[Rfam]
RNA sequence: UGGCGAUGAUGACCAUUUUAGGACACCUUUGGAGUUACACAUGAAACUAACAUUUUAAGCUGAGCCAU
Numbered sequence: 001u002g003g004c005g006a007u008g009a010u011g012a013c014c015a016u017u018u019u020a021g022g023a024c025a026c027c028u029u030u031g032g033a034g035u036u037a038c039a040c041a042u043g044a045a046a047c048u049a050a051c052a053u054u055u056u057a058a059g060c061u062g063a064g065c066c067a068u
Stems, first nucleotide, its partner, number of pairs: 001067004
Description: The record is a 68-nucleotide RNA sequence from Leptobrachium leishanense, which matches "Small nucleolar RNA SNORD58" in Rfam. NCBI's taxonomy places the organism under Eukaryota, Gnathostomata, Sarcopterygii, Batrachia, Leptobrachium. Its Rfam clan is "SNORD58 clan". Rfam 15.1 lists 2,484 matches to the family in 680 species. Rfam classes the family as a C/D-box small nucleolar RNA. Its family is annotated with RNA processing and nucleolus in the Gene Ontology. The literature on the family includes a 2002 paper in Mol Cell Biol by Galardi et al., "Purified box C/D snoRNPs are able to reproduce site-specific 2'-O-methylation of target RNA in vitro". snoRNA U58 is found in introns 1, 3 and 6 of the ribosomal protein RPL17 gene in humans. The family's consensus secondary structure was predicted with PFOLD. A search with the family's covariance model found it, with a score of 58 bits.